[Rfam]
RNA: L31-Actinobacteria ribosomal protein leader
Organism: Pseudonocardia sp. CNS-004
RNA sequence: CCGGCUCCGGUUCACCCCGUCACCUGGGGACCCGGCGCC
Dot-bracket structure: ..(((.((((....(((((.....)))))..)))).)))